[Rfam]
RNA sequence: UUGAGCUUCGAUACGAACGCAGCCUAUUCACUGCACCGUCUAGCGUGGACGAGUGGAGGGGAAAAGGUUGCCAGAUCAACGCAGUAACAUCUCAUAAACUGUCUUGCUCACCAUGCGAGGCGGGCUACUAAGUUUCUGCGACAAUU
Numbered sequence: 001u002u003g004a005g006c007u008u009c010g011a012u013a014c015g016a017a018c019g020c021a022g023c024c025u026a027u028u029c030a031c032u033g034c035a036c037c038g039u040c041u042a043g044c045g046u047g048g049a050c051g052a053g054u055g056g057a058g059g060g061g062a063a064a065a066g067g068u069u070g071c072c073a074g075a076u077c078a079a080c081g082c083a084g085u086a087a088c089a090u091c092u093c094a095u096a097a098a099c100u101g102u103c104u105u106g107c108u109c110a111c112c113a114u115g116c117g118a119g120g121c122g123g124g125c126u127a128c129u130a131a132g133u134u135u136c137u138g139c140g141a142c143a144a145u146u
Stems, first nucleotide, its partner, number of pairs: 019071002022068002031058002034055002037051005080140005087133002099123003103119005

The family of this 146-nucleotide sequence from Ogataea polymorpha is "Small nucleolar RNA snR8". It scores 61 bits against the family's covariance model. Clan: SNORA56 clan. NCBI's taxonomy places the organism under Eukaryota, Opisthokonta, saccharomyceta, Saccharomycotina, Ogataea. A reference for the family is Parker et al. (1988), "Genetic analysis of small nuclear RNAs in Saccharomyces cerevisiae: viable sextuple mutant", Mol Cell Biol.